The record is a 54-nucleotide RNA from Rhizobium sp. P32RR-XVIII, which matches "sul1 RNA" in Rfam. It is annotated as a riboswitch.
RNA sequence: CAUGGAUCCCACACUCGUGGGUGGCUAUCCCAGCCGCCGAUCCGCUGGGCAACC
Numbered sequence: 001c002a003u004g005g006a007u008c009c010c011a012c013a014c015u016c017g018u019g020g021g022u023g024g025c026u027a028u029c030c031c032a033g034c035c036g037c038c039g040a041u042c043c044g045c046u047g048g049g050c051a052a053c054c
Stems, first nucleotide, its partner, number of pairs: 006022004012017001029049006
The match comes from Rfam's covariance-model search (55 bits).